[Rfam]
RNA sequence: GGGUGCGGCGCCGUGCGGGCGCCGCAGGUUCUCGCGCAGGUCGGGCCGCCGCG
Numbered sequence: 001g002g003g004u005g006c007g008g009c010g011c012c013g014u015g016c017g018g019g020c021g022c023c024g025c026a027g028g029u030u031c032u033c034g035c036g037c038a039g040g041u042c043g044g045g046c047c048g049c050c051g052c053g
Stems, first nucleotide, its partner, number of pairs: 005025008035053003039050003
Dot-bracket structure: ....((((((((.....)))))))).........(((.(((......))))))
Rfam assigns this 53-nucleotide sequence from Ramlibacter tataouinensis to the family "nhaA-I RNA". The organism belongs to Ramlibacter tataouinensis, within Bacteria. From the family's description: Acidobacteria, Alphaproteobacteria, Betaproteobacteria and Gammaproteobacteria, Verrucomicrobia, cand. division NC10. It is one of the family's seed sequences.